[Rfam]
RNA sequence: GUGCUGCAUUAAGAGUUGGGAAUUCCAUGCCAACCUGCUUUUCAAAAGGAAAAGUAAGGUGGACGGUUGAAAAGCCGAUGUGGCUCACCAGAGCAAUCCAAACCCGCUUGAU
Numbered sequence: 001g002u003g004c005u006g007c008a009u010u011a012a013g014a015g016u017u018g019g020g021a022a023u024u025c026c027a028u029g030c031c032a033a034c035c036u037g038c039u040u041u042u043c044a045a046a047a048g049g050a051a052a053a054g055u056a057a058g059g060u061g062g063a064c065g066g067u068u069g070a071a072a073a074g075c076c077g078a079u080g081u082g083g084c085u086c087a088c089c090a091g092a093g094c095a096a097u098c099c100a101a102a103c104c105c106g107c108u109u110g111a112u
Stems, first nucleotide, its partner, number of pairs: 006081005015028001017027004030062002034059003037055007083094004